[Rfam]
RNA sequence: CAAUAACAUACGGGUCUUUAAGGGUGGCGGCACUUCCCAUAGAAGGGAGGUGUUGCGGAUGACGACAUUUCAAGUGCUGAUGCUUAUGAUUGCAUUUGCAGGUUUGAUGGUGUCGGUUACAUCACGAGACAACAAAUAAACCGCCCUUAGAGCGUGCCAGCUUGUUAGGGGCGGUUUUUACCUUACUAGAGUUAGGCUGUCCCUCUUAAAGGGAGCCCAGUUAUUGCAGACCAUGGGUGUUACCAGCACCUGUG
Numbered sequence: 001c002a003a004u005a006a007c008a009u010a011c012g013g014g015u016c017u018u019u020a021a022g023g024g025u026g027g028c029g030g031c032a033c034u035u036c037c038c039a040u041a042g043a044a045g046g047g048a049g050g051u052g053u054u055g056c057g058g059a060u061g062a063c064g065a066c067a068u069u070u071c072a073a074g075u076g077c078u079g080a081u082g083c084u085u086a087u088g089a090u091u092g093c094a095u096u097u098g099c100a101g102g103u104u105u106g107a108u109g110g111u112g113u114c115g116g117u118u119a120c121a122u123c124a125c126g127a128g129a130c131a132a133c134a135a136a137u138a139a140a141c142c143g144c145c146c147u148u149a150g151a152g153c154g155u156g157c158c159a160g161c162u163u164g165u166u167a168g169g170g171g172c173g174g175u176u177u178u179u180a181c182c183u184u185a186c187u188a189g190a191g192u193u194a195g196g197c198u199g200u201c202c203c204u205c206u207u208a209a210a211g212g213g214a215g216c217c218c219a220g221u222u223a224u225u226g227c228a229g230a231c232c233a234u235g236g237g238u239g240u241u242a243c244c245a246g247c248a249c250c251u252g253u254g
Stems, first nucleotide, its partner, number of pairs: 001226005007220001011199003015195001017151008026141001030053003034049005061118002063115005075088002200214004232254010
A member of the RNA family "BsrG" from Shouchella lonarensis, 254 nucleotides long. Rfam 15.1 lists 614 matches to the family in 343 species. The base pairs follow the family's consensus structure, which was predicted with WAR. It is annotated as a small RNA. It scores 73 bits against the family's covariance model.